[Rfam]
The record is a 68-nucleotide sequence from Ixodes scapularis, which matches "mir-2 microRNA precursor family" in Rfam.
RNA sequence: CUGUUCGUCAAAGUGGCUCUGAUGUGUGUCUCUUUUUUUCAUAUCACAGCCAGCUUUGAUGAGCGGUG
Numbered sequence: 001c002u003g004u005u006c007g008u009c010a011a012a013g014u015g016g017c018u019c020u021g022a023u024g025u026g027u028g029u030c031u032c033u034u035u036u037u038u039u040c041a042u043a044u045c046a047c048a049g050c051c052a053g054c055u056u057u058g059a060u061g062a063g064c065g066g067u068g
Base pairs, nucleotide, nucleotide: 005062006061007060008059009058010057011056012055013054014052015051016050017049018048020046021045022044025043026042027041
The family's consensus secondary structure was predicted with PFOLD. Taxonomically the source falls in Ixodes (Eukaryota, Chelicerata, Acari, Ixodidae). On this family, see Lee and Ambros, Science 2001: "An extensive class of small RNAs in Caenorhabditis elegans".